[Rfam]
RNA sequence: UGCUAGCAAGUAGGUUGCGUUAGCGAUUGAAACGGCAUCCUUUUUUGUUUUUUCAAAAAAGAUAUAGUGUAAAGCGCGACCUUUU
Numbered sequence: 001u002g003c004u005a006g007c008a009a010g011u012a013g014g015u016u017g018c019g020u021u022a023g024c025g026a027u028u029g030a031a032a033c034g035g036c037a038u039c040c041u042u043u044u045u046u047g048u049u050u051u052u053u054c055a056a057a058a059a060a061g062a063u064a065u066a067g068u069g070u071a072a073a074g075c076g077c078g079a080c081c082u083u084u085u
Base pairs, nucleotide, nucleotide: 023077024076025075027073028072032068033067037063038062039061043058044057045056046055047054
The family of this 85-nucleotide RNA sequence from Polaribacter sp. SA4-12 is "Flavo-1 RNA". The match comes from Rfam's covariance-model search (58 bits). Taxonomically the source falls in Polaribacter (Bacteria, Pseudomonadati, Flavobacteriales, Flavobacteriaceae).